[Rfam]
RNA sequence: CCCCCGCCUCCCCAGUGUUCAGACUACCUGUUCAUCAGACUACAGCUGAACAGUAGUCUGCACAUUGGUUAGGCUGGGCU
Numbered sequence: 001c002c003c004c005c006g007c008c009u010c011c012c013c014a015g016u017g018u019u020c021a022g023a024c025u026a027c028c029u030g031u032u033c034a035u036c037a038g039a040c041u042a043c044a045g046c047u048g049a050a051c052a053g054u055a056g057u058c059u060g061c062a063c064a065u066u067g068g069u070u071a072g073g074c075u076g077g078g079c080u
Base pairs, nucleotide, nucleotide: 012068013067014066015065016064017063018062020060021059022058023057024056025055026054028053029052030051031050033048034047
The record is an 80-nucleotide sequence from Anabas testudineus, which matches "mir-199 microRNA precursor family" in Rfam.
About the family: This family consists of the microRNA (miRNA) precursor mir-199 which appears to be specific to humans. Animal miRNAs are transcribed as ~70nt precursors and subsequently processed by the Dicer enzyme to give a ~22nt product. In this case the mature sequence comes from the 3' arm of the precursor. The extents of the hairpin precursors are not generally known and are estimated based on hairpin prediction.
The literature on the family includes a 2001 paper in Cell by Ambros, "microRNAs: tiny regulators with great potential".